This 116-nucleotide RNA sequence from Mesorhizobium australicum belongs to the Rfam family "ALIL pseudoknot". The family has 26 seed sequences and 2,146 matches in Rfam 15.1. Rfam classes the family as a cis-regulatory element.
RNA sequence: CGCGUGUUUUGCCCAGGCUGAGCUCGACCGCCGGUUCAGACCAUGAUCGCGUUCACGACGAUCACCGCGAGGCGCAUGGGAUCGAGCCGAUCUGCAAUGUGCUGCCGAUCACCCCG
Numbered sequence: 001c002g003c004g005u006g007u008u009u010u011g012c013c014c015a016g017g018c019u020g021a022g023c024u025c026g027a028c029c030g031c032c033g034g035u036u037c038a039g040a041c042c043a044u045g046a047u048c049g050c051g052u053u054c055a056c057g058a059c060g061a062u063c064a065c066c067g068c069g070a071g072g073c074g075c076a077u078g079g080g081a082u083c084g085a086g087c088c089g090a091u092c093u094g095c096a097a098u099g100u101g102c103u104g105c106c107g108a109u110c111a112c113c114c115c116g
Stems, first nucleotide, its partner, number of pairs: 016032003020028001077116004089110001091108002094105003